[Rfam]
RNA sequence: UAGCAAGCCUCCAGCGUGCUUGGGUCUGUGGUGACCCUGUGCAUUCCUACAGUGCUUGCUAGAACAGCUCUGAAAUGGUUUGAGGCCUUGCCCUGCUCCAUCCAGAGCAAGGUAAGACAUUUCAGAAUCAA
Numbered sequence: 001u002a003g004c005a006a007g008c009c010u011c012c013a014g015c016g017u018g019c020u021u022g023g024g025u026c027u028g029u030g031g032u033g034a035c036c037c038u039g040u041g042c043a044u045u046c047c048u049a050c051a052g053u054g055c056u057u058g059c060u061a062g063a064a065c066a067g068c069u070c071u072g073a074a075a076u077g078g079u080u081u082g083a084g085g086c087c088u089u090g091c092c093c094u095g096c097u098c099c100a101u102c103c104a105g106a107g108c109a110a111g112g113u114a115a116g117a118c119a120u121u122u123c124a125g126a127a128u129c130a131a
Stems, first nucleotide, its partner, number of pairs: 003059006017043003022037005071124005086112006093105003
Dot-bracket structure: ..((((((........(((..(((((......)))))...)))..........))))))...........(((((..........((((((.(((.......))).)))))).......))))).......

Small nucleolar RNA SNORA9: a 131-nucleotide sequence from Otolemur garnettii. Its family is annotated with nucleolus and RNA processing in the Gene Ontology. ACA9 is a member of the H/ACA class of snoRNA that guide the sites of modification of uridines to pseudouridines. The family's consensus secondary structure was predicted with PFOLD. Clan: SNORA9 clan. By type it is an H/ACA-box small nucleolar RNA.